Background:
The family of this 68-nucleotide sequence from Flavobacterium pygoscelis is "DUF805 RNA". Taxonomically the source falls in Flavobacterium (Bacteria, Pseudomonadati, Bacteroidota, Flavobacteriales). Rfam 15.1 lists 281 matches to the family in 219 species. By type it is a cis-regulatory element.
[Rfam]
RNA sequence: AAAAAGUGUAGUCCAGAAAACACAGAAAAAACGGGGAGUAACUGAAAAUCCAAAAGAGUAAGAAUCAA
Numbered sequence: 001a002a003a004a005a006g007u008g009u010a011g012u013c014c015a016g017a018a019a020a021c022a023c024a025g026a027a028a029a030a031a032c033g034g035g036g037a038g039u040a041a042c043u044g045a046a047a048a049u050c051c052a053a054a055a056g057a058g059u060a061a062g063a064a065u066c067a068a
Stems, first nucleotide, its partner, number of pairs: 006023004035051003042062002